Shown here is a 77-nucleotide sequence from Streptomyces sp. SID625, a member of the family "nrdJ RNA". The family's consensus secondary structure is taken from published work. A search with the family's covariance model found it, with a score of 51 bits.
[Rfam]
RNA sequence: GGGCGGCGGCGACAGACGUGCCCGCAGCACCAGACAGAACACCGUGUCUCGGAACAUUCGGGGCACUUCUGGGCGUU
Numbered sequence: 001g002g003g004c005g006g007c008g009g010c011g012a013c014a015g016a017c018g019u020g021c022c023c024g025c026a027g028c029a030c031c032a033g034a035c036a037g038a039a040c041a042c043c044g045u046g047u048c049u050c051g052g053a054a055c056a057u058u059c060g061g062g063g064c065a066c067u068u069c070u071g072g073g074c075g076u077u
Stems, first nucleotide, its partner, number of pairs: 001023005007018002044066008